[Rfam]
RNA sequence: CUUGUAUCUUAGUGCUUGUAGUCUGAAAAAACUCAUAAAUUCUCAGUGUUCUCAUCAGCUUCCGUCUCCUUAACCAUGAGACUUGAGUUAAACAAGAUCACUACAUUA
Numbered sequence: 001c002u003u004g005u006a007u008c009u010u011a012g013u014g015c016u017u018g019u020a021g022u023c024u025g026a027a028a029a030a031a032c033u034c035a036u037a038a039a040u041u042c043u044c045a046g047u048g049u050u051c052u053c054a055u056c057a058g059c060u061u062c063c064g065u066c067u068c069c070u071u072a073a074c075c076a077u078g079a080g081a082c083u084u085g086a087g088u089u090a091a092a093c094a095a096g097a098u099c100a101c102u103a104c105a106u107u108a
Stems, first nucleotide, its partner, number of pairs: 045102004050097002057089005065081004
RNA: Small nucleolar RNA snoR97